RNA sequence: CUUUCCUUUUAAAGACAGUCCAGAGAGGCUGGCAAAGGAAUCUCAAUCGCGGUUUCCGAUGAAACCGUAUUGCAGAACCCUCUUUGCGCCCUCUUGCAACGAGGGUUUUUUUUA
Numbered sequence: 001c002u003u004u005c006c007u008u009u010u011a012a013a014g015a016c017a018g019u020c021c022a023g024a025g026a027g028g029c030u031g032g033c034a035a036a037g038g039a040a041u042c043u044c045a046a047u048c049g050c051g052g053u054u055u056c057c058g059a060u061g062a063a064a065c066c067g068u069a070u071u072g073c074a075g076a077a078c079c080c081u082c083u084u085u086g087c088g089c090c091c092u093c094u095u096g097c098a099a100c101g102a103g104g105g106u107u108u109u110u111u112u113u114a
Stems, first nucleotide, its partner, number of pairs: 003040007016031005044072002049068008074109009084099004